Background:
Shown here is a 354-nucleotide part of an RNA from Herpetosiphon aurantiacus, a member of the family "Bacterial large subunit ribosomal RNA". On this family, see Cannone et al., BMC Bioinformatics 2002: "The comparative RNA web (CRW) site: an online database of comparative sequence and structure information for ribosomal, intron, and other RNAs". Its family is annotated with structural constituent of ribosome and ribosome in the Gene Ontology. The base pairs follow the family's consensus structure, which is taken from published work. NCBI's taxonomy places the organism under Bacteria, Bacillati, Herpetosiphonaceae, Herpetosiphon, Herpetosiphon aurantiacus.
[Rfam]
RNA sequence: CGAGCGAAUCCCGGUUAAGGAACUCGGCACGAAUGACCCCGUAACUUCGGGAAAAGGGGUGCUCGCUUUGGUGAAGCCCAUACGGGUGGAGGCUGAGGCGAGUCGCAGCAAAGAGGCCCAGGCGACUGUUUAACAAAAACACAGGUCGGUGCGAACGCGAAACAGCGGACGUAUACCGGCUGACACCUGCCCAGUGCUGGAAGGUUAAGGGGAGAUGUGCAAGCGUUGAACCGAAGCCCCAGUAAACGGCGGCCGUAACUAUAACGGUCCUAAGGUAGCGAAAUUCCUUGUCGGGUAAGUUCCGACCCGCACGAAAGGUAGAACGAUCUGGGCGCUGUCUCAACCGGGAGCUCG
Numbered sequence: 001c002g003a004g005c006g007a008a009u010c011c012c013g014g015u016u017a018a019g020g021a022a023c024u025c026g027g028c029a030c031g032a033a034u035g036a037c038c039c040c041g042u043a044a045c046u047u048c049g050g051g052a053a054a055a056g057g058g059g060u061g062c063u064c065g066c067u068u069u070g071g072u073g074a075a076g077c078c079c080a081u082a083c084g085g086g087u088g089g090a091g092g093c094u095g096a097g098g099c100g101a102g103u104c105g106c107a108g109c110a111a112a113g114a115g116g117c118c119c120a121g122g123c124g125a126c127u128g129u130u131u132a133a134c135a136a137a138a139a140c141a142c143a144g145g146u147c148g149g150u151g152c153g154a155a156c157g158c159g160a161a162a163c164a165g166c167g168g169a170c171g172u173a174u175a176c177c178g179g180c181u182g183a184c185a186c187c188u189g190c191c192c193a194g195u196g197c198u199g200g201a202a203g204g205u206u207a208a209g210g211g212g213a214g215a216u217g218u219g220c221a222a223g224c225g226u227u228g229a230a231c232c233g234a235a236g237c238c239c240c241a242g243u244a245a246a247c248g249g250c251g252g253c254c255g256u257a258a259c260u261a262u263a264a265c266g267g268u269c270c271u272a273a274g275g276u277a278g279c280g281a282a283a284u285u286c287c288u289u290g291u292c293g294g295g296u297a298a299g300u301u302c303c304g305a306c307c308c309g310c311a312c313g314a315a316a317g318g319u320a321g322a323a324c325g326a327u328c329u330g331g332g333c334g335c336u337g338u339c340u341c342a343a344c345c346g347g348g349a350g351c352u353c354g
Stems, first nucleotide, its partner, number of pairs: 001354004009349008018340003036060005045050001061103006076087004104108001116333007123325002127141003144181008152171001156167003185319003189250003194247002196243005203238003209232002214227005251269006270274001280307001290306006
Dot-bracket structure: ((((....((((((((.(((...............(((((....(....).....)))))((((((.........((((....))))..........))))))(...).......(((((((((..(((.........)))..(((((((((...(((......)))...)..))))))))...(((.(((..(((((((..(((...((...(((((....)))))...))...))))))))..)))))((((((.......))))))(...).....(.........((((((.....))))))).........)))....)).)))))))....))).)))))))).))))